[Rfam]
RNA sequence: UCGGCGACACACGACUGGCGCAGGUGGGCCACCACCAGGGAGUGACGAGUCGGCAUCGAUCGCCUGGGUGCCCUCA
Numbered sequence: 001u002c003g004g005c006g007a008c009a010c011a012c013g014a015c016u017g018g019c020g021c022a023g024g025u026g027g028g029c030c031a032c033c034a035c036c037a038g039g040g041a042g043u044g045a046c047g048a049g050u051c052g053g054c055a056u057c058g059a060u061c062g063c064c065u066g067g068g069u070g071c072c073c074u075c076a
Base pairs, nucleotide, nucleotide: 005047006046010044011043012042015039016038017064018063019062020061024035025034026033027032053071054070055069056068057067
RNA: ZMP/ZTP riboswitch aptamer (pfl RNA motif)
Organism: Nocardioides kongjuensis